[Rfam]
RNA sequence: GAUAGCCCGCUGUCGCUACGGUGAUUGGACACUGACAGAGAGUCAACUAGCCUUGUGCGCGCGGUUCUUCGCGCGCAGAACCGAGGGUGGUCCGAGUCACGAGGGGGGAGGCUCGGACCACCUGCC
Numbered sequence: 001g002a003u004a005g006c007c008c009g010c011u012g013u014c015g016c017u018a019c020g021g022u023g024a025u026u027g028g029a030c031a032c033u034g035a036c037a038g039a040g041a042g043u044c045a046a047c048u049a050g051c052c053u054u055g056u057g058c059g060c061g062c063g064g065u066u067c068u069u070c071g072c073g074c075g076c077a078g079a080a081c082c083g084a085g086g087g088u089g090g091u092c093c094g095a096g097u098c099a100c101g102a103g104g105g106g107g108g109a110g111g112c113u114c115g116g117a118c119c120a121c122c123u124g125c126c
Stems, first nucleotide, its partner, number of pairs: 001014005015051004021032003033045004058075007076083001086122013100107001

A member of the RNA family "Streptomyces RNA 3920" from Streptomyces zinciresistens, 126 nucleotides long.
The literature on the family includes a 2011 paper in RNA Biol by Vockenhuber et al., "Deep sequencing-based identification of small non-coding RNAs in Streptomyces coelicolor".
About the family: Identified by deep sequencing of transcriptome at the end of exponential growth phase. Sequencing size consistent with northern blot size. Streptomyces specific.
A search with the family's covariance model found it, with a score of 134 bits.
NCBI's taxonomy places the organism under Bacteria, Kitasatosporales, Streptomycetaceae, Streptomyces, Streptomyces zinciresistens.